Purine riboswitch aptamer: a 102-nucleotide RNA sequence from Lentibacillus kapialis. Gene Ontology term of the family: purine nucleobase biosynthetic process.
RNA sequence: UAAAGAUGAACAAACGCCAUUCAUAUAUCCUCGAUAAUAUGGAUCGAAAGUUUCUACCAGGGUACCGUAAAUACCUUGACUAUGAAGGCGGAUUUCAAUAGG
Numbered sequence: 001u002a003a004a005g006a007u008g009a010a011c012a013a014a015c016g017c018c019a020u021u022c023a024u025a026u027a028u029c030c031u032c033g034a035u036a037a038u039a040u041g042g043a044u045c046g047a048a049a050g051u052u053u054c055u056a057c058c059a060g061g062g063u064a065c066c067g068u069a070a071a072u073a074c075c076u077u078g079a080c081u082a083u084g085a086a087g088g089c090g091g092a093u094u095u096c097a098a099u100a101g102g
Stems, first nucleotide, its partner, number of pairs: 018088001020086006031047005058078007
The match comes from Rfam's covariance-model search (82 bits). Lineage of the source: Bacteria > Bacillati > Bacillota > Bacillaceae > Lentibacillus. The family's consensus secondary structure is taken from published work.